[Rfam]
RNA sequence: UAUGCAAGUGAUGAUAAACAGACAGGGACAUCUGUACUCUUUUUGAGGGUGAUGACUUCGUCUUGGGAAUCUCUCUGAUGCAUU
Numbered sequence: 001u002a003u004g005c006a007a008g009u010g011a012u013g014a015u016a017a018a019c020a021g022a023c024a025g026g027g028a029c030a031u032c033u034g035u036a037c038u039c040u041u042u043u044u045g046a047g048g049g050u051g052a053u054g055a056c057u058u059c060g061u062c063u064u065g066g067g068a069a070u071c072u073c074u075c076u077g078a079u080g081c082a083u084u
Base pairs, nucleotide, nucleotide: 002083003082004081005080006079
This 84-nucleotide RNA from Dioscorea zingiberensis belongs to the Rfam family "Small nucleolar RNA R44/J54/Z268 family". Rfam classes the family as a C/D-box small nucleolar RNA. The family is grouped with related families in Rfam's "SNORD74 clan". Taxonomically the source falls in Dioscorea (Eukaryota, Viridiplantae, Embryophyta, Magnoliopsida).